[Rfam]
RNA: Group II catalytic intron D1-D4-3
RNA sequence: UCCACCAUGAGGUGAAAUUUGAAGGAAGCCGGAGGUAAAAUAUCGAACUGACGAAUAGAAACUGUAUAAAAGGUUGAUGUGGAGCGGAUGAGCUUGCUAUACAAAGCGAAGUGCGAUACUGCCGAACUCCAUUCAGUAAAUACAGCAGUUACAUGGGGUGAAGGUUAUUGUA
Numbered sequence: 001u002c003c004a005c006c007a008u009g010a011g012g013u014g015a016a017a018u019u020u021g022a023a024g025g026a027a028g029c030c031g032g033a034g035g036u037a038a039a040a041u042a043u044c045g046a047a048c049u050g051a052c053g054a055a056u057a058g059a060a061a062c063u064g065u066a067u068a069a070a071a072g073g074u075u076g077a078u079g080u081g082g083a084g085c086g087g088a089u090g091a092g093c094u095u096g097c098u099a100u101a102c103a104a105a106g107c108g109a110a111g112u113g114c115g116a117u118a119c120u121g122c123c124g125a126a127c128u129c130c131a132u133u134c135a136g137u138a139a140a141u142a143c144a145g146c147a148g149u150u151a152c153a154u155g156g157g158g159u160g161a162a163g164g165u166u167a168u169u170g171u172a
Stems, first nucleotide, its partner, number of pairs: 001016001003014004030170003035165002040159002043156003046150005062145006073137003077133001079132006086114001088112002092107004